The record is a 218-nucleotide sequence from Albula goreensis, which matches "MIR6217 microRNA precursor family" in Rfam. The base pairs follow the family's consensus structure, which was predicted with RNAalifold.

RNA sequence: CAGCAACAGACCGCAACAGUUUGCAAAGAGGUCAGAUUAGAGAAUUAUCAGUCUAGAUAUAUCUAUUGAUAUGCACAAAUGUUAGAUGUCUAAAACACUUACAAGGUAAAUGUCUUGUAAGUGUUUUAGACAUCUAACAUUUGUGCAUAUCAAUAGAUAUAUCUAGACUGAUAAUUCUCUAAUCUGACCUCUUUGCAAACUGUUGCGGUCUGUUGCUG
Numbered sequence: 001c002a003g004c005a006a007c008a009g010a011c012c013g014c015a016a017c018a019g020u021u022u023g024c025a026a027a028g029a030g031g032u033c034a035g036a037u038u039a040g041a042g043a044a045u046u047a048u049c050a051g052u053c054u055a056g057a058u059a060u061a062u063c064u065a066u067u068g069a070u071a072u073g074c075a076c077a078a079a080u081g082u083u084a085g086a087u088g089u090c091u092a093a094a095a096c097a098c099u100u101a102c103a104a105g106g107u108a109a110a111u112g113u114c115u116u117g118u119a120a121g122u123g124u125u126u127u128a129g130a131c132a133u134c135u136a137a138c139a140u141u142u143g144u145g146c147a148u149a150u151c152a153a154u155a156g157a158u159a160u161a162u163c164u165a166g167a168c169u170g171a172u173a174a175u176u177c178u179c180u181a182a183u184c185u186g187a188c189c190u191c192u193u194u195g196c197a198a199a200c201u202g203u204u205g206c207g208g209u210c211u212g213u214u215g216c217u218g
Base pairs, nucleotide, nucleotide: 001218002217003216004215005214006213007212008211009210010209011208012207013206014205015204016203017202018201019200020199021198022197023196024195025194026193027192028191029190030189031188032187033186037182038181039180040179041178042177043176044175045174046173049170050169051168052167053166054165055164056163057162058161059160060159061158062157063156064155066153067152068151071150076143077142078141079140080139082137083136084135085134086133087132088131089130090129091128092127093126094125095124096123097122098121105115106114